[Rfam]
RNA sequence: CGAAUCGGACAGUGCGGGAAACCGCAUGAAACUCGCCUGCAAUCCCGGCAUCACCGCGCGAGCGGUGUGGCGACUUUUCAAAUGCUGCCUAUGGCGGCACCUCA
Number, nucleotide and partner (000 for none) at each position: 001c000002g000003a000004a000005u000006c000007g000008g000009a000010c000011a000012g027013u026014g025015c024016g023017g022018g000019a000020a000021a000022c017023c016024g015025c014026a013027u012028g000029a000030a000031a000032c000033u073034c072035g071036c070037c069038u000039g000040c000041a000042a000043u000044c000045c000046c000047g000048g000049c000050a000051u000052c067053a066054c065055c064056g063057c062058g000059c000060g000061a000062g057063c056064g055065g054066u053067g052068u000069g037070g036071c035072g034073a033074c000075u000076u000077u000078u000079c000080a000081a000082a000083u099084g098085c097086u096087g095088c094089c000090u000091a000092u000093g000094g088095c087096g086097g085098c084099a083100c000101c000102u000103c000104a000
DUF3577 RNA: a 104-nucleotide RNA. It is one of the family's seed sequences.